[Rfam]
RNA sequence: CACCGAUAAGGGCAAACCUCGUGUGAGCGAGGGGCGCAAAGCCUACGGAAGUCAGUUCUUAAGCUGACUUGGCCGGGUUGCCGAA
Numbered sequence: 001c002a003c004c005g006a007u008a009a010g011g012g013c014a015a016a017c018c019u020c021g022u023g024u025g026a027g028c029g030a031g032g033g034g035c036g037c038a039a040a041g042c043c044u045a046c047g048g049a050a051g052u053c054a055g056u057u058c059u060u061a062a063g064c065u066g067a068c069u070u071g072g073c074c075g076g077g078u079u080g081c082c083g084a085a
Stems, first nucleotide, its partner, number of pairs: 012037002017032006040079004046075003049070009